[Rfam]
RNA sequence: UCAGUGAUGAAAACAGCCAAAUCUGAGCAUCAGAAAACCUUGCAGUCUACCUAAUGCAUGAUCUCUGUAGUACUGAGA
Numbered sequence: 001u002c003a004g005u006g007a008u009g010a011a012a013a014c015a016g017c018c019a020a021a022u023c024u025g026a027g028c029a030u031c032a033g034a035a036a037a038c039c040u041u042g043c044a045g046u047c048u049a050c051c052u053a054a055u056g057c058a059u060g061a062u063c064u065c066u067g068u069a070g071u072a073c074u075g076a077g078a
Stems, first nucleotide, its partner, number of pairs: 027057004035048001037046002
Overview: Small nucleolar RNA U2-19: a 78-nucleotide sequence from Eschrichtius robustus. Its family is annotated with RNA processing and nucleolus in the Gene Ontology. It scores 80 bits against the family's covariance model. On this family, see Tycowski et al., Curr Biol 2004: "Guide RNAs with 5' Caps and Novel Box C/D snoRNA-like Domains for Modification of snRNAs in Metazoa". The organism belongs to Eschrichtius, within Eukaryota.